Shown here is a 52-nucleotide RNA sequence from Paenibacillus sp. OAS669, a member of the family "uup RNA". Pairs were carried over by alignment from the consensus structure, which is taken from published work. It is annotated as a cis-regulatory element. NCBI's taxonomy places the organism under Bacteria, Bacillati, Caryophanales, Paenibacillaceae, Paenibacillus.

RNA sequence: CCAAAGGCCGCUCCGUACAAACGGAUAAAAACGAUGAAACGUUGUCCGGAGC
Numbered sequence: 001c002c003a004a005a006g007g008c009c010g011c012u013c014c015g016u017a018c019a020a021a022c023g024g025a026u027a028a029a030a031a032c033g034a035u036g037a038a039a040c041g042u043u044g045u046c047c048g049g050a051g052c
Base pairs, nucleotide, nucleotide: 011051012050013049014048015047017045018044019043